[Rfam]
RNA: MIR6152 microRNA precursor family
RNA sequence: UGGACAGAGUAUUGUAUUCACGGUGUGAAAUAGGGGAUUACACUGUUUUUAAAACGGAUAGUGAAUCAAUUAACAUAAUAGACUCCA
Number, nucleotide and partner (000 for none) at each position: 001u000002g086003g085004a084005c000006a000007g000008a000009g076010u075011a000012u073013u068014g067015u000016a066017u065018u064019c063020a062021c061022g000023g000024u056025g055026u054027g049028a048029a047030a046031u045032a044033g043034g000035g000036g000037a000038u000039u000040a000041c000042a000043c033044u032045g031046u030047u029048u028049u027050u000051a000052a000053a000054a026055c025056g024057g000058a000059u000060a000061g021062u020063g019064a018065a017066u016067c014068a013069a000070u000071u000072a000073a012074c000075a010076u009077a000078a000079u000080a000081g000082a000083c000084u004085c003086c002087a000